A member of the RNA family "SAM riboswitch aptamer (S box leader)" from Arthrobacter sp. CAU 1506, 93 nucleotides long. It scores 65 bits against the family's covariance model. Rfam describes the family as follows. The SAM riboswitch is found upstream of a number of genes which code for proteins involved in methionine or cysteine biosynthesis in Gram-positive bacteria.
[Rfam]
RNA sequence: GAACCAUCCAGAGCGGCUGAGAGAUCUGGCUCGAUGACGCCGCAGCAACCCCGGCCUUUUGCCGCACGGUGCUAACGCCAGGACCGAUGGAGA
Numbered sequence: 001g002a003a004c005c006a007u008c009c010a011g012a013g014c015g016g017c018u019g020a021g022a023g024a025u026c027u028g029g030c031u032c033g034a035u036g037a038c039g040c041c042g043c044a045g046c047a048a049c050c051c052c053g054g055c056c057u058u059u060u061g062c063c064g065c066a067c068g069g070u071g072c073u074a075a076c077g078c079c080a081g082g083a084c085c086g087a088u089g090g091a092g093a
Stems, first nucleotide, its partner, number of pairs: 004090005013043005021032003026081004044073004049069002052064003077085001